[Rfam]
RNA sequence: UGGUUUGCAGUGAUGAAGAAACAGUUUAGACUAGAGUUUCUGAUCUUCUCUUUGAAGGUUGAAGACAAGCCCUUGGCUGUCUGAGCACACCA
Numbered sequence: 001u002g003g004u005u006u007g008c009a010g011u012g013a014u015g016a017a018g019a020a021a022c023a024g025u026u027u028a029g030a031c032u033a034g035a036g037u038u039u040c041u042g043a044u045c046u047u048c049u050c051u052u053u054g055a056a057g058g059u060u061g062a063a064g065a066c067a068a069g070c071c072c073u074u075g076g077c078u079g080u081c082u083g084a085g086c087a088c089a090c091c092a
Base pairs, nucleotide, nucleotide: 001092002091003090004089006087007086008085037064038063039062040061045057046056047055048054
RNA: Small nucleolar RNA Z157/R69/R10